RNA: RNase MRP
RNA sequence: AGAUACAUAUAAGACUUGCGUUCGGGUCACAAACGGAGAUGAACCCAUCUCAUUAUCACCGAGGGAAAGUCCCCAUACCGAGCAUAGAGACUACUGAUUUGAGGAAUCGUGUCAAACUUAUCAGCUGCCUCCCGUUGAUGCAAUGACGCUGGGAGUUGUUGGUAGGUAUCUUCGUCAUAGUAAAGCUAAAUGCAAGUGGCACUUUAGUGUUAACAAAAUGGGAAUUACUCUGAAGGAAUU
Numbered sequence: 001a002g003a004u005a006c007a008u009a010u011a012a013g014a015c016u017u018g019c020g021u022u023c024g025g026g027u028c029a030c031a032a033a034c035g036g037a038g039a040u041g042a043a044c045c046c047a048u049c050u051c052a053u054u055a056u057c058a059c060c061g062a063g064g065g066a067a068a069g070u071c072c073c074c075a076u077a078c079c080g081a082g083c084a085u086a087g088a089g090a091c092u093a094c095u096g097a098u099u100u101g102a103g104g105a106a107u108c109g110u111g112u113c114a115a116a117c118u119u120a121u122c123a124g125c126u127g128c129c130u131c132c133c134g135u136u137g138a139u140g141c142a143a144u145g146a147c148g149c150u151g152g153g154a155g156u157u158g159u160u161g162g163u164a165g166g167u168a169u170c171u172u173c174g175u176c177a178u179a180g181u182a183a184a185g186c187u188a189a190a191u192g193c194a195a196g197u198g199g200c201a202c203u204u205u206a207g208u209g210u211u212a213a214c215a216a217a218a219u220g221g222g223a224a225u226u227a228c229u230c231u232g233a234a235g236g237a238a239u240u
Stems, first nucleotide, its partner, number of pairs: 002240003006236001008234001010232002014197006022063001023061001025060003036051006067226002072222003083096002085093002097112002100109003114169001116167001120163006129155006199210004
Dot-bracket structure: .(((.(.(.((..((((((..((.(((........((((((....))))))......)))).)...[[...[[[........((((.....)).))((.(((....))).)).(.(...((((((...((((((...............))))))..))))))...).)......................)))))).((((....)))).........]]]..]]....)).).).)))